[Rfam]
RNA: Small nucleolar RNA Z221/R21b
Organism: Helianthus annuus
RNA sequence: GGGCAGUGAUGAUAAAAUAGGAAAGUCAUGCACCACUCUGAUAUACAUUGUGAUCGAUAAACUUUCUCUUACCCAUAUUGUUUUCUGAGCCC
Numbered sequence: 001g002g003g004c005a006g007u008g009a010u011g012a013u014a015a016a017a018u019a020g021g022a023a024a025g026u027c028a029u030g031c032a033c034c035a036c037u038c039u040g041a042u043a044u045a046c047a048u049u050g051u052g053a054u055c056g057a058u059a060a061a062c063u064u065u066c067u068c069u070u071a072c073c074c075a076u077a078u079u080g081u082u083u084u085c086u087g088a089g090c091c092c
Stems, first nucleotide, its partner, number of pairs: 001092004